[Rfam]
Shown here is a 77-nucleotide sequence from Microcaecilia unicolor, a member of the family "mir-19 microRNA precursor family". The family's consensus secondary structure was predicted with RNAalifold.
Nucleotides: 077
Base pairs, nucleotide, nucleotide: 004074005073006072007071008070009069010068011067012066013065014064015063016062017061018060020057021056022054023053024052025051026050027049028048031047032046033045
Number, partner (000 for none) and nucleotide at each position: 001000g002000u003000g004074u005073a006072c007071g008070g009069u010068c011067a012066g013065u014064u015063u016062u017061g018060c019000u020057g021056g022054u023053u024052u025051g026050c027049a028048u029000u030000c031047a032046g033045c034000u035000u036000g037000a038000u039000u040000u041000a042000g043000u044000u045033g046032c047031u048028g049027u050026g051025c052024a053023a054022a055000u056021c057020c058000a059000u060018g061017c062016a063015a064014a065013a066012c067011u068010g069009a070008c071007u072006g073005u074004g075000g076000c077000a

Gene Ontology terms of the family: miRNA-mediated post-transcriptional gene silencing and RISC complex. Rfam 15.1 lists 2,337 matches to the family in 651 species. A search with the family's covariance model found it, with a score of 82 bits. The family is grouped with related families in Rfam's "mir-19 clan".